[Rfam]
This 125-nucleotide RNA from Oncorhynchus mykiss belongs to the Rfam family "U4atac minor spliceosomal RNA". Rfam describes the family as follows. U4atac is an essential component of the minor U12-type spliceosome complex which is required for removal of the rarer class of eukaryotic introns (AT-AC, U12-type). Its family is annotated with spliceosomal tri-snRNP complex assembly, mRNA 5'-splice site recognition and pre-mRNA 5'-splice site binding in the Gene Ontology. A search with the family's covariance model found it, with a score of 96 bits.
RNA sequence: ACUUUCCUUGUCAUGGGGUGAGGGAGCUGCUCAAUGAACGUCUAGUGAGAGUAGCCCUGCUAACACCAUAACGACACAUAAGCAUCACCUGAGCUCGCUCAGUCCAUGGUGCAAUUUUUGGAACC
Numbered sequence: 001a002c003u004u005u006c007c008u009u010g011u012c013a014u015g016g017g018g019u020g021a022g023g024g025a026g027c028u029g030c031u032c033a034a035u036g037a038a039c040g041u042c043u044a045g046u047g048a049g050a051g052u053a054g055c056c057c058u059g060c061u062a063a064c065a066c067c068a069u070a071a072c073g074a075c076a077c078a079u080a081a082g083c084a085u086c087a088c089c090u091g092a093g094c095u096c097g098c099u100c101a102g103u104c105c106a107u108g109g110u111g112c113a114a115u116u117u118u119u120g121g122a123a124c125c
Stems, first nucleotide, its partner, number of pairs: 006018004020060001022058002026055007038046002082112006089102005